RNA sequence: CGCUUCGGUCCGGAGUUGAUGGGUUAUCAUUGUGAUUCUUUCGUUUCCUGCUUGCAGGAGACAACCCCCGGUUUCCUUGCGAAAUCAAAAACCGUUCUCUCGAGAACAAAACCUCUUCUCGUGUUCUGUUAAAGAAUACAAAACCCUUCCCAUCAACACCAACUUGACCGAAGU
Numbered sequence: 001c002g003c004u005u006c007g008g009u010c011c012g013g014a015g016u017u018g019a020u021g022g023g024u025u026a027u028c029a030u031u032g033u034g035a036u037u038c039u040u041u042c043g044u045u046u047c048c049u050g051c052u053u054g055c056a057g058g059a060g061a062c063a064a065c066c067c068c069c070g071g072u073u074u075c076c077u078u079g080c081g082a083a084a085u086c087a088a089a090a091a092c093c094g095u096u097c098u099c100u101c102g103a104g105a106a107c108a109a110a111a112c113c114u115c116u117u118c119u120c121g122u123g124u125u126c127u128g129u130u131a132a133a134g135a136a137u138a139c140a141a142a143a144c145c146c147u148u149c150c151c152a153u154c155a156a157c158a159c160c161a162a163c164u165u166g167a168c169c170g171a172a173g174u
Stems, first nucleotide, its partner, number of pairs: 002174003006170005012160002015157009044061007072084004
RNA: Nematode sRNA ceN72-3_ceN74-2
Organism: Caenorhabditis nigoni